SAM riboswitch aptamer (S box leader): a 117-nucleotide RNA sequence from Brevibacillus sp. WF146. Rfam describes the family as follows. The SAM riboswitch is found upstream of a number of genes which code for proteins involved in methionine or cysteine biosynthesis in Gram-positive bacteria. Gene Ontology term of the family: regulation of gene expression. A search with the family's covariance model found it, with a score of 90 bits. NCBI's taxonomy places the organism under Bacteria, Bacillota, Bacilli, Caryophanales, Brevibacillus. The family's consensus secondary structure is taken from published work.

[Rfam]
RNA sequence: UUCUUAUCAAGAGAGGCGGAGGGACAGGCCCUAUGAAGCCCGGCAACCGGCUCAUCGCACAGAUGGGUGUCGCGGUGCCAAUUCCUACAAGAUCGGCUGAAUCUUGAGAGAUGAGAA
Numbered sequence: 001u002u003c004u005u006a007u008c009a010a011g012a013g014a015g016g017c018g019g020a021g022g023g024a025c026a027g028g029c030c031c032u033a034u035g036a037a038g039c040c041c042g043g044c045a046a047c048c049g050g051c052u053c054a055u056c057g058c059a060c061a062g063a064u065g066g067g068u069g070u071c072g073c074g075g076u077g078c079c080a081a082u083u084c085c086u087a088c089a090a091g092a093u094c095g096g097c098u099g100a101a102u103c104u105u106g107a108g109a110g111a112u113g114a115g116a117a
Stems, first nucleotide, its partner, number of pairs: 001117008013041001015040003021031003026086003042079004047075002049071003083109001088106006